[Rfam]
RNA sequence: AGCAGUACGUGCCGAGCGGCUCCACCCCGCGGCCGGCGCCCUGGCACCCCUUCCCCGGUGCCAGGUCGCCGCCCGGCCUCGGGUUGGAACCACCCGGCACGUCCUGCACCAG
Numbered sequence: 001a002g003c004a005g006u007a008c009g010u011g012c013c014g015a016g017c018g019g020c021u022c023c024a025c026c027c028c029g030c031g032g033c034c035g036g037c038g039c040c041c042u043g044g045c046a047c048c049c050c051u052u053c054c055c056c057g058g059u060g061c062c063a064g065g066u067c068g069c070c071g072c073c074c075g076g077c078c079u080c081g082g083g084u085u086g087g088a089a090c091c092a093c094c095c096g097g098c099a100c101g102u103c104c105u106g107c108a109c110c111a112g
Base pairs, nucleotide, nucleotide: 010099011098012097013096014095016093018091019090021088022087023086024085026083027082028081029080031078032077033076034075035070036069037068038067040065041064042063043062044061045060046059047058
This 112-nucleotide sequence from Microlunatus sagamiharensis belongs to the Rfam family "mraW RNA". A search with the family's covariance model found it, with a score of 61 bits. It is annotated as a cis-regulatory element.